[Rfam]
RNA sequence: ACCUGUCAUGGACGCUACGAGCGGCGUCCGUGGCGACAGACAGAGACCGUGCCCGGGGAAGUUUUGGGCACACAAGGGCGUU
Numbered sequence: 001a002c003c004u005g006u007c008a009u010g011g012a013c014g015c016u017a018c019g020a021g022c023g024g025c026g027u028c029c030g031u032g033g034c035g036a037c038a039g040a041c042a043g044a045g046a047c048c049g050u051g052c053c054c055g056g057g058g059a060a061g062u063u064u065u066g067g068g069c070a071c072a073c074a075a076g077g078g079c080g081u082u
Stems, first nucleotide, its partner, number of pairs: 004035013049071008
RNA: nrdJ RNA